[Rfam]
RNA sequence: AAAAACAUCGGGAAUGAGGUUCUCCCAGAAACUUAGGUUUCGAACCGCCGAAAUAGGAUUUUAUUUGGCUGAUGACUUCUGCAGAAUA
Numbered sequence: 001a002a003a004a005a006c007a008u009c010g011g012g013a014a015u016g017a018g019g020u021u022c023u024c025c026c027a028g029a030a031a032c033u034u035a036g037g038u039u040u041c042g043a044a045c046c047g048c049c050g051a052a053a054u055a056g057g058a059u060u061u062u063a064u065u066u067g068g069c070u071g072a073u074g075a076c077u078u079c080u081g082c083a084g085a086a087u088a
Stems, first nucleotide, its partner, number of pairs: 010026004016079006047069006
RNA: Fluoride riboswitch aptamer (crcB RNA motif)